The family of this 67-nucleotide RNA from Petromyzon marinus is "mir-29 microRNA precursor family". The literature on the family includes a 2001 paper in Cell by Ambros, "microRNAs: tiny regulators with great potential". Lineage of the source: Eukaryota > Opisthokonta > Eumetazoa > Vertebrata > Petromyzon. The family has 168 seed sequences and 3,328 matches in Rfam 15.1. From the family's description: This family represents the microRNA (miRNA) precursors mir-29.
RNA sequence: GCGUGACCGAUUUCCCUUGGUGUUUAGAUGUGGAUGUGGUCUCUAGCACCAUUAGAAAUCGGUUAUG
Numbered sequence: 001g002c003g004u005g006a007c008c009g010a011u012u013u014c015c016c017u018u019g020g021u022g023u024u025u026a027g028a029u030g031u032g033g034a035u036g037u038g039g040u041c042u043c044u045a046g047c048a049c050c051a052u053u054a055g056a057a058a059u060c061g062g063u064u065a066u067g
Stems, first nucleotide, its partner, number of pairs: 005063001007062008018051005025045004
Dot-bracket structure: ....(.((((((((...(((((..((((.............)))).)))))...)))))))))....